[Rfam]
RNA sequence: AAACCCGCGAGGGGAUGUCUGGAGGAAGCUGGCGGCAAAGCUGCAAGCUGACGGACAGAAACGUCAUAGAAGGCCGAGACCCCCAGGAUGAGUUGGCACAACACAACGAAAUCCUUUGGUUCACGGGGCACGGUAAAUGGCGCGGUUGUGCAGUGAAGGUUCAUGUU
Numbered sequence: 001a002a003a004c005c006c007g008c009g010a011g012g013g014g015a016u017g018u019c020u021g022g023a024g025g026a027a028g029c030u031g032g033c034g035g036c037a038a039a040g041c042u043g044c045a046a047g048c049u050g051a052c053g054g055a056c057a058g059a060a061a062c063g064u065c066a067u068a069g070a071a072g073g074c075c076g077a078g079a080c081c082c083c084c085a086g087g088a089u090g091a092g093u094u095g096g097c098a099c100a101a102c103a104c105a106a107c108g109a110a111a112u113c114c115u116u117u118g119g120u121u122c123a124c125g126g127g128g129c130a131c132g133g134u135a136a137a138u139g140g141c142g143c144g145g146u147u148g149u150g151c152a153g154u155g156a157a158g159g160u161u162c163a164u165g166u167u
Stems, first nucleotide, its partner, number of pairs: 001016001004013003028167001030165002035160002040154006046147005062142006073134003078129001080127003086114004092107004
RNA: Group II catalytic intron D1-D4-3
Organism: Leptolyngbya sp. 'hensonii'